[Rfam]
Nucleotides: 101
Stems, first nucleotide, its partner, number of pairs: 007057006015047002020044002022041001023038003027034001059073005076096001078099001082094003
Number, partner (000 for none) and nucleotide at each position: 001000a002000a003000a004000a005000a006000u007057g008056u009055u010054u011053u012052c013000u014000a015047g016046g017000g018000u019000u020044c021043c022041g023038c024037g025036g026000u027034u028000u029000a030000u031000u032000u033000u034027a035000u036025c037024c038023g039000g040000u041022c042000a043021g044020g045000u046016c047015c048000g049000a050000g051000a052012g053011a054010a055009a056008a057007c058000a059073c060072a061071c062070a063069g064000u065000a066000a067000c068000a069063c070062u071061g072060u073059g074000g075000a076096c077000a078099c079000g080000g081000a082094g083093g084092g085000a086000u087000a088000a089000a090000a091000g092084c093083c094082c095000g096076g097000g098000a099078g100000a101000u